[Rfam]
RNA sequence: CACAUCUCGUUGGGAGAAACCGCUUCGAUGCGGCGCCGAAGGAGCAACCGCCCCGGAAACUCUCAGGCAAAAGGACCAGCGAGACCUA
Numbered sequence: 001c002a003c004a005u006c007u008c009g010u011u012g013g014g015a016g017a018a019a020c021c022g023c024u025u026c027g028a029u030g031c032g033g034c035g036c037c038g039a040a041g042g043a044g045c046a047a048c049c050g051c052c053c054c055g056g057a058a059a060c061u062c063u064c065a066g067g068c069a070a071a072a073g074g075a076c077c078a079g080c081g082a083g084a085c086c087u088a
Stems, first nucleotide, its partner, number of pairs: 006083008020033004035068003038064002042062003048056002
The family of this 88-nucleotide RNA from Rhizobium sp. Root149 is "Glycine riboswitch aptamer". The match comes from Rfam's covariance-model search (69 bits). The base pairs follow the family's consensus structure.